Overview: Shown here is a 73-nucleotide sequence from Akkermansia muciniphila, a member of the family "tRNA".
Nucleotides: 073
Stems, first nucleotide, its partner, number of pairs: 001072007010026004028044005049065005
Number, partner (000 for none) and nucleotide at each position: 001072g002071u003070c004069g005068c006067g007066u008000u009000c010026g011025u012024c013023u014000a015000g016000c017000g018000g019000u020000c021000c022000a023013g024012g025011a026010c027000u028044c029043c030042c031041g032040c033000c034000u035000u036000u037000c038000a039000c040032g041031c042030g043029g044028g045000c046000a047000a048000c049065a050064c051063g052062g053061g054000u055000u056000c057000g058000a059000g060000u061053c062052c063051c064050g065049u066007a067006c068005g069004c070003g071002a072001u073000g
The source organism's lineage runs through Bacteria, Verrucomicrobiota, Verrucomicrobiia, Akkermansiaceae and Akkermansia muciniphila. Rfam links the family to the GO term triplet codon-amino acid adaptor activity. The base pairs follow the family's consensus structure, which is taken from published work.